[Rfam]
RNA sequence: AAUAACAAAGAUAAAAACGCAACGCGUACAGAAAUGUAUGCCAGAGCCGGUAGGUAGCCCGGCCGUCACGGCGUAGCCGUGGUAAGUAACCUGCCCUCCGGGUUGUCCGUUCUUUGUUCAUGAAUU
Number, nucleotide and partner (000 for none) at each position: 001a000002a000003u000004a118005a117006c116007a115008a114009a113010g112011a111012u000013a000014a000015a000016a000017a000018c000019g000020c000021a000022a000023c000024g000025c000026g000027u000028a000029c000030a000031g000032a000033a000034a000035u000036g000037u000038a000039u000040g000041c000042c000043a000044g000045a000046g063047c062048c061049g060050g059051u000052a000053g000054g000055u000056a000057g000058c000059c050060c049061g048062g047063c046064c000065g083066u082067c081068a080069c079070g078071g077072c076073g000074u000075a000076g072077c071078c070079g069080u068081g067082g066083u065084a000085a000086g000087u000088a000089a000090c000091c000092u000093g103094c102095c101096c100097u000098c000099c000100g096101g095102g094103u093104u000105g000106u000107c000108c000109g000110u000111u011112c010113u009114u008115u007116g006117u005118u004119c000120a000121u000122g000123a000124a000125u000126u000